[Rfam]
This 357-nucleotide part of an RNA from a Candidatus Methanophagaceae archaeon belongs to the Rfam family "Archaeal large subunit ribosomal RNA". It scores 2923 bits against the family's covariance model. Taxonomically the source falls in Candidatus Methanophagaceae (Archaea, Methanobacteriota, Methanomicrobia, Candidatus Methanophagales).

RNA sequence: CGGGUAAAUCCAGCUAAGGGAAAUCGGCAAAUUAGCCCUGUAACUUCGGGAGAAAGGGUGCCUGCCUUGUGAAAGGUAGGUCGCAGUGACAAGGGAAGGCUAACUGUCUAAUAACAACAUAGGUGACCGCAAGUCCGUAAGGAUUAGUACGGUCACUGACUCCUGCCCAGUGUAGGUAUCUGAAAGCCCCUUCCAAGGGGACGAAGGACCUAUAAACGGCGGGGGUAACUCUGACCCUCUUAAGGUAGCGUAGUACCUAGCCGCUUAAUUGGCGGCUUGCACGAAAGGAGGAAUGAGCCUUCUACUGUCCCUAGCUGGAAACCGGCGAAAUCAUCUUCCCGGUGAAAAGACCGGGGA
Numbered sequence: 001c002g003g004g005u006a007a008a009u010c011c012a013g014c015u016a017a018g019g020g021a022a023a024u025c026g027g028c029a030a031a032u033u034a035g036c037c038c039u040g041u042a043a044c045u046u047c048g049g050g051a052g053a054a055a056g057g058g059u060g061c062c063u064g065c066c067u068u069g070u071g072a073a074a075g076g077u078a079g080g081u082c083g084c085a086g087u088g089a090c091a092a093g094g095g096a097a098g099g100c101u102a103a104c105u106g107u108c109u110a111a112u113a114a115c116a117a118c119a120u121a122g123g124u125g126a127c128c129g130c131a132a133g134u135c136c137g138u139a140a141g142g143a144u145u146a147g148u149a150c151g152g153u154c155a156c157u158g159a160c161u162c163c164u165g166c167c168c169a170g171u172g173u174a175g176g177u178a179u180c181u182g183a184a185a186g187c188c189c190c191u192u193c194c195a196a197g198g199g200g201a202c203g204a205a206g207g208a209c210c211u212a213u214a215a216a217c218g219g220c221g222g223g224g225g226u227a228a229c230u231c232u233g234a235c236c237c238u239c240u241u242a243a244g245g246u247a248g249c250g251u252a253g254u255a256c257c258u259a260g261c262c263g264c265u266u267a268a269u270u271g272g273c274g275g276c277u278u279g280c281a282c283g284a285a286a287g288g289a290g291g292a293a294u295g296a297g298c299c300u301u302c303u304a305c306u307g308u309c310c311c312u313a314g315c316u317g318g319a320a321a322c323c324g325g326c327g328a329a330a331u332c333a334u335c336u337u338c339c340c341g342g343u344g345a346a347a348a349g350a351c352c353g354g355g356g357a
Base pairs, nucleotide, nucleotide: 001324002323003322009319010318011317012316013315014314015313016312018310019309020308035059036058037057038056039055044049060081061080062079063078064077065076066075067074068073082086094303095302096301097300098299099298100297101295102294105119106118107117122157123156124155125154126153127152128151129150130147133144134143135142136141160290161289162288163287165220166219167218170217171216172213173212174211175210176209179208180207181206187200188199189198190197221239222238223237224236225235226234240244260276261275262274263273264272265271338355339354340353341352342351
Dot-bracket structure: (((.....((((((((.(((..............(((((....(....).....)))))(((((((((....)))))))))(...).......(((((((((..(((.........)))..(((((((((..((((....))))..)..))))))))..((((.(((..(((((((..(((.....((((......)))).....))))))))..)))))((((((.......))))))(...)...............((((((.....))))))..........))))...)).)))))))....))).))))))))..))).............(((((........)))))..